A member of the RNA family "permuted transfer-messenger RNA" from Azohydromonas caseinilytica, 219 nucleotides long.
Taxonomically the source falls in Azohydromonas (Bacteria, Betaproteobacteria, Burkholderiales, Sphaerotilaceae).
Gene Ontology term of the family: RNA catabolic process.
It is one of the family's seed sequences.
Rfam describes the family as follows. Bacterial tmRNA, also known as 10Sa RNA or SsrA, is named for its dual tRNA and mRNA-like properties.
RNA sequence: GGUCGUAAUCCCGUCAAAGGGGAUGCGUGUCGGACGCGGGUUCGAUUCCCGCCGGCUCCACCAGAAGCACAUCGAAACCCGAUGUCGCGUGUGUUUCUGAUGGGGCCGACCUGGUUUCGACGGCGCGAGGAACUGGAGAAGGCGACCCGAGAGGCGACGGACGUAAUCCGCGCAAAUCAAGCAAUCGCCAACGACGAGCGCUUCCUGGCCGCCGCCUAA
Numbered sequence: 001g002g003u004c005g006u007a008a009u010c011c012c013g014u015c016a017a018a019g020g021g022g023a024u025g026c027g028u029g030u031c032g033g034a035c036g037c038g039g040g041u042u043c044g045a046u047u048c049c050c051g052c053c054g055g056c057u058c059c060a061c062c063a064g065a066a067g068c069a070c071a072u073c074g075a076a077a078c079c080c081g082a083u084g085u086c087g088c089g090u091g092u093g094u095u096u097c098u099g100a101u102g103g104g105g106c107c108g109a110c111c112u113g114g115u116u117u118c119g120a121c122g123g124c125g126c127g128a129g130g131a132a133c134u135g136g137a138g139a140a141g142g143c144g145a146c147c148c149g150a151g152a153g154g155c156g157a158c159g160g161a162c163g164u165a166a167u168c169c170g171c172g173c174a175a176a177u178c179a180a181g182c183a184a185u186c187g188c189c190a191a192c193g194a195c196g197a198g199c200g201c202u203u204c205c206u207g208g209c210c211g212c213c214g215c216c217u218a219a
Base pairs, nucleotide, nucleotide: 001147002146003145004144005143014137015136017134026127027126028125030123031122032121036052037051038050039049040048053108054107055106056105057104058103059102148163149162